[Rfam]
Glycine riboswitch aptamer: a 119-nucleotide RNA from Brevibacillus sp. WF146.
It scores 60 bits against the family's covariance model.
This family represents the bacterial glycine riboswitch.
RNA sequence: GGACGAACCUCUGGAGAGACCCCCCUUUUAAGCAUCGGCGAGGGGCACGGGCACCGAAGGAGCAAAUUCGCGCGGCGUACGCGAAUGAAUCUCUCAGGUAAAAGGACAGAGCGGACGAC
Numbered sequence: 001g002g003a004c005g006a007a008c009c010u011c012u013g014g015a016g017a018g019a020c021c022c023c024c025c026u027u028u029u030a031a032g033c034a035u036c037g038g039c040g041a042g043g044g045g046c047a048c049g050g051g052c053a054c055c056g057a058a059g060g061a062g063c064a065a066a067u068u069c070g071c072g073c074g075g076c077g078u079a080c081g082c083g084a085a086u087g088a089a090u091c092u093c094u095c096a097g098g099u100a101a102a103a104g105g106a107c108a109g110a111g112c113g114g115a116c117g118a119c
Stems, first nucleotide, its partner, number of pairs: 009111005020051003053099003056095002060093003066086007